[Rfam]
RNA sequence: AUGAAGGUAAUGGGAGAGCGAUUUAGAAUCCACCGAAGAAGUAAAUCUUUCAGGUAUUAGGACCGUUACUGGACG
Numbered sequence: 001a002u003g004a005a006g007g008u009a010a011u012g013g014g015a016g017a018g019c020g021a022u023u024u025a026g027a028a029u030c031c032a033c034c035g036a037a038g039a040a041g042u043a044a045a046u047c048u049u050u051c052a053g054g055u056a057u058u059a060g061g062a063c064c065g066u067u068a069c070u071g072g073a074c075g
Base pairs, nucleotide, nucleotide: 006070007069008068009067010066011065012064013063020030021029022028032055033054034053035051036050039049040048041047
The family of this 75-nucleotide RNA sequence from Clostridium celatum is "Glycine riboswitch aptamer".